Description:
Rfam assigns this 84-nucleotide RNA from Xanthobacter versatilis to the family "Repression of heat shock gene expression (ROSE) element". About the family: This family represents a 5' UTR cis-regulatory element found in heat shock mRNAs and is known as the ROSE (repression of heat shock gene expression) element. Taxonomically the source falls in Xanthobacter (Bacteria, Pseudomonadati, Alphaproteobacteria, Hyphomicrobiales). It is annotated as an RNA thermoregulator.
RNA sequence: GCCGGCACAUCACCGGCAAGGCAUCGCACACACGUGCGAGGUGCUUGUACCCAUGUUGCUCGAAGGAGAAUGUGGCUAUGAGAA
Numbered sequence: 001g002c003c004g005g006c007a008c009a010u011c012a013c014c015g016g017c018a019a020g021g022c023a024u025c026g027c028a029c030a031c032a033c034g035u036g037c038g039a040g041g042u043g044c045u046u047g048u049a050c051c052c053a054u055g056u057u058g059c060u061c062g063a064a065g066g067a068g069a070a071u072g073u074g075g076c077u078a079u080g081a082g083a084a
Stems, first nucleotide, its partner, number of pairs: 021042002024039006044082006051075007059068003
Rfam links the family to the GO terms regulation of translation and response to temperature stimulus.